[Rfam]
RNA sequence: UAGCAGAUGUCCAUUACGCAAUUGGCAACUGCCUUUUGACGUUUAGUUUAGUCUGCAAAAUAAAUUUACAUCUCGAAGACAGGCACAUCAUCUUUAGAGUUCCUGUUCAAGAUUGUGAAACAAUU
Numbered sequence: 001u002a003g004c005a006g007a008u009g010u011c012c013a014u015u016a017c018g019c020a021a022u023u024g025g026c027a028a029c030u031g032c033c034u035u036u037u038g039a040c041g042u043u044u045a046g047u048u049u050a051g052u053c054u055g056c057a058a059a060a061u062a063a064a065u066u067u068a069c070a071u072c073u074c075g076a077a078g079a080c081a082g083g084c085a086c087a088u089c090a091u092c093u094u095u096a097g098a099g100u101u102c103c104u105g106u107u108c109a110a111g112a113u114u115g116u117g118a119a120a121c122a123a124u125u
Stems, first nucleotide, its partner, number of pairs: 003056006016042003019038003065119003070113004075108002079106005085100002
RNA: Caenorhabditis snoRNA ceN110